The family of this 111-nucleotide RNA from Cnephaeus nilssonii is "mir-9261 microRNA precursor family". The organism belongs to Cnephaeus, within Eukaryota. The family has 3 seed sequences and 196 matches in Rfam 15.1. The match comes from Rfam's covariance-model search (90 bits).

[Rfam]
RNA sequence: AACAAUUUGUCUCGCGUCCCACGGCAUUUUAAAAAAGUCCCUAUUUUUGAAGAAUCUUUCCAAAAAUAGGGACUUUUUUAAAACGCCGUGGGACGCAGGACAAAUUGUUAA
Numbered sequence: 001a002a003c004a005a006u007u008u009g010u011c012u013c014g015c016g017u018c019c020c021a022c023g024g025c026a027u028u029u030u031a032a033a034a035a036a037g038u039c040c041c042u043a044u045u046u047u048u049g050a051a052g053a054a055u056c057u058u059u060c061c062a063a064a065a066a067u068a069g070g071g072a073c074u075u076u077u078u079u080a081a082a083a084c085g086c087c088g089u090g091g092g093a094c095g096c097a098g099g100a101c102a103a104a105u106u107g108u109u110a111a
Stems, first nucleotide, its partner, number of pairs: 001109012014096012027083019